[Rfam]
RNA sequence: CUUUAUCUUCAGGGACGGGUGAAAUUCCGUACCGGCGGUAUGGCCUAAAUAUAGCCGAGCCCGCGAACCCGUAAGGGUUGAUCCGGUGAAAAGCCGGGGCCGACAGUUAGAGUCUGGAUGGGAGAAGGUAGAG
Numbered sequence: 001c002u003u004u005a006u007c008u009u010c011a012g013g014g015a016c017g018g019g020u021g022a023a024a025u026u027c028c029g030u031a032c033c034g035g036c037g038g039u040a041u042g043g044c045c046u047a048a049a050u051a052u053a054g055c056c057g058a059g060c061c062c063g064c065g066a067a068c069c070c071g072u073a074a075g076g077g078u079u080g081a082u083c084c085g086g087u088g089a090a091a092a093g094c095c096g097g098g099g100c101c102g103a104c105a106g107u108u109a110g111a112g113u114c115u116g117g118a119u120g121g122g123a124g125a126a127g128g129u130a131g132a133g
Stems, first nucleotide, its partner, number of pairs: 003131008018028002031113002033102002035064004059100002067078003082098005104116003
RNA: FMN riboswitch aptamer (RFN element)